[Rfam]
RNA: Mammalian CPEB3 ribozyme
Organism: Alligator sinensis
RNA sequence: AGAGGUCACAAGUGCAAGGCCACAGUAGAAACACUCAUGGUAUGGCCUGUCAGAUUCCAACAAAUCUGCAAAUUCUGCU
Number, nucleotide and partner (000 for none) at each position: 001a000002g000003a000004g000005g000006u000007c000008a000009c000010a000011a000012g000013u000014g000015c000016a000017a000018g047019g046020c045021c044022a000023c000024a079025g078026u077027a076028g075029a074030a073031a043032c000033a041034c000035u000036c000037a000038u000039g000040g000041u033042a000043u031044g021045g020046c019047c018048u000049g000050u000051c068052a067053g066054a065055u064056u063057c000058c000059a000060a000061c000062a000063a056064a055065u054066c053067u052068g051069c000070a000071a000072a000073u030074u029075c028076u027077g026078c025079u024